[Rfam]
RNA sequence: CAUUUAUCAAGAAUGGUUUAGAGGGUUAGCUCGAUGAGACCAUACCAACCUGCACAAAGUAAGGUGGUAACGCUAACAACGAUAAGGA
Numbered sequence: 001c002a003u004u005u006a007u008c009a010a011g012a013a014u015g016g017u018u019u020a021g022a023g024g025g026u027u028a029g030c031u032c033g034a035u036g037a038g039a040c041c042a043u044a045c046c047a048a049c050c051u052g053c054a055c056a057a058a059g060u061a062a063g064g065u066g067g068u069a070a071c072g073c074u075a076a077c078a079a080c081g082a083u084a085a086g087g088a
Base pairs, nucleotide, nucleotide: 003086004085005084006083007082008081013043014042015041016040017039021032022031023030026076027075028074029073044068045067046066047065049064050063051061052060053059072080

The family of this 88-nucleotide RNA from Anaerorhabdus furcosa is "SAM riboswitch aptamer (S box leader)". The family's consensus secondary structure is taken from published work. A search with the family's covariance model found it, with a score of 47 bits.